RNA: c-di-GMP-I riboswitch aptamer
Organism: Deinococcus koreensis
RNA sequence: AACCGACACAGGCAAAACCUCCGCGAGGAGGCGACGCAAAGCCACGGAACUCCUCUGGAGUCAGCCGGGUUGCCGAA
Numbered sequence: 001a002a003c004c005g006a007c008a009c010a011g012g013c014a015a016a017a018c019c020u021c022c023g024c025g026a027g028g029a030g031g032c033g034a035c036g037c038a039a040a041g042c043c044a045c046g047g048a049a050c051u052c053c054u055c056u057g058g059a060g061u062c063a064g065c066c067g068g069g070u071u072g073c074c075g076a077a
Stems, first nucleotide, its partner, number of pairs: 012037002018031005040071004045067003049061005